The family of this 138-nucleotide RNA sequence from Moschus moschiferus is "Small nucleolar RNA SNORA57". Rfam classes the family as an H/ACA-box small nucleolar RNA. For this family Rfam cites "Identification of 13 novel human modification guide RNAs" (Vitali et al., Nucleic Acids Res, 2003). Its family is annotated with nucleolus and RNA processing in the Gene Ontology.
RNA sequence: CCUCCUUUUCUUGGCAGGGAUUCCCGAUCCAUGUAAUGUACAGAAGUAGAAGGAAUGGGCUCUGGCCUCCUUGGGAUCAUGUCCUCAGUACCAGCAGUUUCCAGUCUGCUGGUUCUAUCCUCAAGUGCCGGGAUACAG
Numbered sequence: 001c002c003u004c005c006u007u008u009u010c011u012u013g014g015c016a017g018g019g020a021u022u023c024c025c026g027a028u029c030c031a032u033g034u035a036a037u038g039u040a041c042a043g044a045a046g047u048a049g050a051a052g053g054a055a056u057g058g059g060c061u062c063u064g065g066c067c068u069c070c071u072u073g074g075g076a077u078c079a080u081g082u083c084c085u086c087a088g089u090a091c092c093a094g095c096a097g098u099u100u101c102c103a104g105u106c107u108g109c110u111g112g113u114u115c116u117a118u119c120c121u122c123a124a125g126u127g128c129c130g131g132g133a134u135a136c137a138g
Stems, first nucleotide, its partner, number of pairs: 001046001003044002015033002018030005072130003076126002091112007